Rfam assigns this 104-nucleotide RNA sequence from Staphylococcus gallinarum to the family "Staphylococcus sRNA71 small RNA".
Rfam's curators write: sRNA71 is a Bacterial small RNA discovered by RNA-seq analysis of the multiresistant Staphylococcus aureus strain ST239 grown in the presence of antibiotics and found throughout the Staphylococcus genus. It is thought to be a trans-encoded small RNA expressed in diverse conditions and media. The 5' position is uncertain, this record adds 12 bases to the initial sRNA71 sequence to include additional conserved nucleotides.
The source organism's lineage runs through Bacteria, Bacillati, Bacillota, Staphylococcaceae and Staphylococcus.
The base pairs follow the family's consensus structure, which was predicted with LocARNA.
RNA sequence: AAACUUGAUAUAUUAUAGAUGUAGUUGGGAACCGACUACUAGUCUUUUAUAUUCAUGAACAUAUUACUCUAAAAGCGGUACCUACAGGUAUCGCUUUUUCCUUU
Number, nucleotide and partner (000 for none) at each position: 001a000002a000003a000004c057005u000006u055007g054008a053009u000010a000011u000012a000013u000014u049015a048016u000017a046018g045019a000020u000021g039022u038023a037024g036025u035026u034027g033028g000029g000030a000031a000032c000033c027034g026035a025036c024037u023038a022039c021040u000041a000042g000043u000044c000045u018046u017047u000048u015049a014050u000051a000052u000053u008054c007055a006056u000057g004058a000059a000060c000061a000062u000063a000064u000065u000066a000067c000068u000069c000070u000071a000072a000073a096074a095075g094076c093077g092078g091079u090080a089081c000082c000083u000084a000085c000086a000087g000088g000089u080090a079091u078092c077093g076094c075095u074096u073097u000098u000099u000100c000101c000102u000103u000104u000